[Rfam]
RNA sequence: UUGACUCUCAAAUGAGAACGCUUAUUAUUCAUCUCACCUGGUCGCGAGAUCAGCCGGUAAACUGAAGCACGGGUAGUAGGUUUCAGGUUAUCUCCUCAUCAAGGCUAAUCACGGUUUUUGACCCGGCUCUGCCGGGUCUUUUUUUG
Numbered sequence: 001u002u003g004a005c006u007c008u009c010a011a012a013u014g015a016g017a018a019c020g021c022u023u024a025u026u027a028u029u030c031a032u033c034u035c036a037c038c039u040g041g042u043c044g045c046g047a048g049a050u051c052a053g054c055c056g057g058u059a060a061a062c063u064g065a066a067g068c069a070c071g072g073g074u075a076g077u078a079g080g081u082u083u084c085a086g087g088u089u090a091u092c093u094c095c096u097c098a099u100c101a102a103g104g105c106u107a108a109u110c111a112c113g114g115u116u117u118u119u120g121a122c123c124c125g126g127c128u129c130u131g132c133c134g135g136g137u138c139u140u141u142u143u144u145u146g
Stems, first nucleotide, its partner, number of pairs: 035056001038053006062086007070079001094104003120138008
A member of the RNA family "PrrF RNA" from Azomonas macrocytogenes, 146 nucleotides long. The literature on the family includes a 2018 paper in J Bacteriol by Djapgne et al., "The Pseudomonas aeruginosa PrrF1 and PrrF2 small regulatory RNAs (sRNAs) promote 2-alkyl-4-quinolone production through redundant regulation of the antR mRNA". The base pairs follow the family's consensus structure, which is taken from published work. It scores 131 bits against the family's covariance model. Taxonomically the source falls in Azomonas (Bacteria, Pseudomonadota, Pseudomonadales, Pseudomonadaceae).